[Rfam]
RNA sequence: UAGUGCUUACAGCUCUUUUCAAAUUUGUCUAGUAGGUUGUCUCGUGUUUACCGGAAGGCUGCU
Numbered sequence: 001u002a003g004u005g006c007u008u009a010c011a012g013c014u015c016u017u018u019u020c021a022a023a024u025u026u027g028u029c030u031a032g033u034a035g036g037u038u039g040u041c042u043c044g045u046g047u048u049u050a051c052c053g054g055a056a057g058g059c060u061g062c063u
Stems, first nucleotide, its partner, number of pairs: 035060004040055003044051002
The record is a 63-nucleotide sequence from Pteropus vampyrus, which matches "U7 small nuclear RNA" in Rfam. Animal histone pre-mRNAs are spliced by a different mechanism than nuclear pre-mRNAs and self-splicing introns. The base pairs follow the family's consensus structure, which was predicted with PFOLD.